[Rfam]
RNA sequence: AUAUCUUUUUAAGAUAGUCCAGAGAGGCUAAUAAGAGAUUAAUUAGGAUUAAUUUUUGCUAUGAAAAAUGGCGAAAUCUAUCCAUUUAAAUACCUUGUUGGCUAACAAGGUAUUUUUUUU
Numbered sequence: 001a002u003a004u005c006u007u008u009u010u011a012a013g014a015u016a017g018u019c020c021a022g023a024g025a026g027g028c029u030a031a032u033a034a035g036a037g038a039u040u041a042a043u044u045a046g047g048a049u050u051a052a053u054u055u056u057u058g059c060u061a062u063g064a065a066a067a068a069u070g071g072c073g074a075a076a077u078c079u080a081u082c083c084a085u086u087u088a089a090a091u092a093c094c095u096u097g098u099u100g101g102c103u104a105a106c107a108a109g110g111u112a113u114u115u116u117u118u119u120u
Stems, first nucleotide, its partner, number of pairs: 003039007015030005046083004052077005059070001088115012
This 120-nucleotide sequence from Gemella sp. GH3 belongs to the Rfam family "PyrR binding site". Rfam's curators write: This family represents the PyrR binding site and terminator structure. The organism belongs to Gemella, within Bacteria.